Rfam assigns this 62-nucleotide RNA sequence from Prolemur simus to the family "U7 small nuclear RNA". The match comes from Rfam's covariance-model search (48 bits).
[Rfam]
RNA sequence: CAGUGUUACAGCUGUUUUAGAAUUUGUCUAGCACAUUUUCUGGUCCACACUGGAAGGACCCC
Numbered sequence: 001c002a003g004u005g006u007u008a009c010a011g012c013u014g015u016u017u018u019a020g021a022a023u024u025u026g027u028c029u030a031g032c033a034c035a036u037u038u039u040c041u042g043g044u045c046c047a048c049a050c051u052g053g054a055a056g057g058a059c060c061c062c
Base pairs, nucleotide, nucleotide: 036057037056038055039054040053041052042051043050044049
Rfam describes the family as follows. Animal histone pre-mRNAs are spliced by a different mechanism than nuclear pre-mRNAs and self-splicing introns. Lineage of the source: Eukaryota > Amniota > Mammalia > Eutheria > Prolemur. Rfam 15.1 lists 10,439 matches to the family in 569 species. The literature on the family includes a 1987 paper in Science by Mowry and Steitz, "Identification of the human U7 snRNP as one of several factors involved in the 3' end maturation of histone premessenger RNA's".